Small nucleolar RNA SNORD2: a 74-nucleotide sequence from Salarias fasciatus. It is annotated as a C/D-box small nucleolar RNA. On this family, see Zhou et al., Gene 2004: "Identification of a novel box C/D snoRNA from mouse nucleolar cDNA library".
[Rfam]
RNA sequence: GAGUGAAAUGAUGCUUUACCAUCUUUCGGGGCUUACCCUAUAAUGGGGAUAACCUUUGUUCACACUGAUCACUC
Numbered sequence: 001g002a003g004u005g006a007a008a009u010g011a012u013g014c015u016u017u018a019c020c021a022u023c024u025u026u027c028g029g030g031g032c033u034u035a036c037c038c039u040a041u042a043a044u045g046g047g048g049a050u051a052a053c054c055u056u057u058g059u060u061c062a063c064a065c066u067g068a069u070c071a072c073u074c
Base pairs, nucleotide, nucleotide: 001074002073003072004071005070006069